[Rfam]
RNA sequence: CGCCCCCCGUCAGGAGAGAGCGCCACCACCCGCACGGUGCGGCGCCGCCGAAGGCGCGAGGCCAUGUGCCCAAACGCUCAGGCAAAAGGACUGGCAAGUGCCC
Dot-bracket structure: .....(..(((((......((((..................)))).(((((..(((...((.......))....))))).))).......)))))..).....
RNA: Glycine riboswitch aptamer